[Rfam]
RNA: Small nucleolar RNA SNORA29
Organism: Astyanax mexicanus
RNA sequence: AGUCCUGUUUUUAGUACCACCCUCCUGCUCCUUAUCAGAGUGUGUGGCUAUGCUAACAGGAUAGAGAAAGUCUAUCAGAGUCUGAAGGGUCUGCAGCUUCUCCCCUGCAGCCUCUAUAUGAACUGAUAGUACACUUAUAA
Numbered sequence: 001a002g003u004c005c006u007g008u009u010u011u012u013a014g015u016a017c018c019a020c021c022c023u024c025c026u027g028c029u030c031c032u033u034a035u036c037a038g039a040g041u042g043u044g045u046g047g048c049u050a051u052g053c054u055a056a057c058a059g060g061a062u063a064g065a066g067a068a069a070g071u072c073u074a075u076c077a078g079a080g081u082c083u084g085a086a087g088g089g090u091c092u093g094c095a096g097c098u099u100c101u102c103c104c105c106u107g108c109a110g111c112c113u114c115u116a117u118a119u120g121a122a123c124u125g126a127u128a129g130u131a132c133a134c135u136u137a138u139a140a
Base pairs, nucleotide, nucleotide: 004060005059006058007057017047018046019045020044074127075126076125077124093114